[Rfam]
This 348-nucleotide RNA from Senegalimassilia anaerobia belongs to the Rfam family "Bacterial RNase P class A".
Lineage of the source: Bacteria > Actinomycetota > Coriobacteriia > Coriobacteriaceae > Senegalimassilia.
It is annotated as a ribozyme.

RNA sequence: UGAGCGGGCCAGACGAUCGCGCGCCGCCUUGAGCGGCGUGAGGAAAGUCCGGGCUCCAAAGGGCAAGAUGCCAGCUAACGGCUGGGCGGGGCGACCCGACGGAAAGUGCCACAGAAAAGUAAACUCCCCCGCGCAAGCGGGAGAAAAGCUGAAACGGUGCGGUAAGAGCGCACCAGCGCGUUGGCAACAACGUGGCUUGGAAAACCCCAUCUGGAGCAAGCGCAAAUAGGAAUGCCAUACGGCCGCCCUUCCGUGCAUUCGGGUUGCGUGCUUGAGACGCGCGGUGACGCGCGUUCGAGAUAAAUGGUCGUCCAACGACAGAACCCGGCUUAUCGACUCGCUCGCGUU
Numbered sequence: 001u002g003a004g005c006g007g008g009c010c011a012g013a014c015g016a017u018c019g020c021g022c023g024c025c026g027c028c029u030u031g032a033g034c035g036g037c038g039u040g041a042g043g044a045a046a047g048u049c050c051g052g053g054c055u056c057c058a059a060a061g062g063g064c065a066a067g068a069u070g071c072c073a074g075c076u077a078a079c080g081g082c083u084g085g086g087c088g089g090g091g092c093g094a095c096c097c098g099a100c101g102g103a104a105a106g107u108g109c110c111a112c113a114g115a116a117a118a119g120u121a122a123a124c125u126c127c128c129c130c131g132c133g134c135a136a137g138c139g140g141g142a143g144a145a146a147a148g149c150u151g152a153a154a155c156g157g158u159g160c161g162g163u164a165a166g167a168g169c170g171c172a173c174c175a176g177c178g179c180g181u182u183g184g185c186a187a188c189a190a191c192g193u194g195g196c197u198u199g200g201a202a203a204a205c206c207c208c209a210u211c212u213g214g215a216g217c218a219a220g221c222g223c224a225a226a227u228a229g230g231a232a233u234g235c236c237a238u239a240c241g242g243c244c245g246c247c248c249u250u251c252c253g254u255g256c257a258u259u260c261g262g263g264u265u266g267c268g269u270g271c272u273u274g275a276g277a278c279g280c281g282c283g284g285u286g287a288c289g290c291g292c293g294u295u296c297g298a299g300a301u302a303a304a305u306g307g308u309c310g311u312c313c314a315a316c317g318a319c320a321g322a323a324c325c326c327g328g329c330u331u332a333u334c335g336a337c338u339c340g341c342u343c344g345c346g347u348u
Stems, first nucleotide, its partner, number of pairs: 001344008010335001011333001012312007020040008045331003049328005054216004061248004066212005071085005086100001087098004101207002106205002109200002124148002127143001129140004156174006176196001177194007220269004230260006239254004276295008